[Rfam]
RNA sequence: CCUGGGACUGACGUCCCAGGCUUUAUGCUUCCGCCGCCUCCGCGGCU
Numbered sequence: 001c002c003u004g005g006g007a008c009u010g011a012c013g014u015c016c017c018a019g020g021c022u023u024u025a026u027g028c029u030u031c032c033g034c035c036g037c038c039u040c041c042g043c044g045g046c047u
Base pairs, nucleotide, nucleotide: 001020002019003018004017005016006015007014008013033046034045035044036043037042
RNA: Acido-Lenti-1 RNA